The record is a 118-nucleotide RNA sequence from Crocuta crocuta, which matches "Small nucleolar RNA SNORA40" in Rfam.
From the family's description: The snoRNA ACA 40 belongs to the H/ACA family of snoRNAs and guides the pseudouridylation of 28S rRNA subunit at position U4565.
The base pairs follow the family's consensus structure, which was predicted with RNAalifold.
For this family Rfam cites "Mapping to nucleotide resolution of pseudouridine residues in large subunit ribosomal RNAs from representative eukaryotes, prokaryotes, archaebacteria, mitochondria and chloroplasts" (Ofengand and Bakin, J Mol Biol, 1997).
The source organism's lineage runs through Eukaryota, Metazoa, Tetrapoda, Eutheria and Crocuta.
It is annotated as an H/ACA-box small nucleolar RNA.
Rfam links the family to the GO terms RNA processing and nucleolus.
Rfam 15.1 lists 2,550 matches to the family in 517 species.

RNA sequence: UCCACAUUGAUCAGUUCUGUGGACAAAGACUUAGACCUAAGUGCAGAAAAUAAAUCCUCUUUUGCAACCCAGAACUCAUGGCUCAGUAUGAAUUUUGAAACAUGUAAGAAGGAACAAG
Numbered sequence: 001u002c003c004a005c006a007u008u009g010a011u012c013a014g015u016u017c018u019g020u021g022g023a024c025a026a027a028g029a030c031u032u033a034g035a036c037c038u039a040a041g042u043g044c045a046g047a048a049a050a051u052a053a054a055u056c057c058u059c060u061u062u063u064g065c066a067a068c069c070c071a072g073a074a075c076u077c078a079u080g081g082c083u084c085a086g087u088a089u090g091a092a093u094u095u096u097g098a099a100a101c102a103u104g105u106a107a108g109a110a111g112g113a114a115c116a117a118g
Stems, first nucleotide, its partner, number of pairs: 001045001003043003007039001009037001011035001014030003018026001019024001055114001057112002060109005070097005076091004